[Rfam]
RNA sequence: GAAGCUAUAGAUGAUAAAUAUUAAGAUCUGGGGAUAGGGUCCAAUAGUUUCUACCAUGCUGCUGUAAAUGGCUUGACUACGAUAUGAGUGUUAAAUGUU
Numbered sequence: 001g002a003a004g005c006u007a008u009a010g011a012u013g014a015u016a017a018a019u020a021u022u023a024a025g026a027u028c029u030g031g032g033g034a035u036a037g038g039g040u041c042c043a044a045u046a047g048u049u050u051c052u053a054c055c056a057u058g059c060u061g062c063u064g065u066a067a068a069u070g071g072c073u074u075g076a077c078u079a080c081g082a083u084a085u086g087a088g089u090g091u092u093a094a095a096u097g098u099u
Stems, first nucleotide, its partner, number of pairs: 018085004022079002029043004055075002058072004

A member of the RNA family "Purine riboswitch aptamer" from Oceanobacillus profundus, 99 nucleotides long.
The source organism's lineage runs through Bacteria, Bacillati, Bacilli, Caryophanales and Oceanobacillus.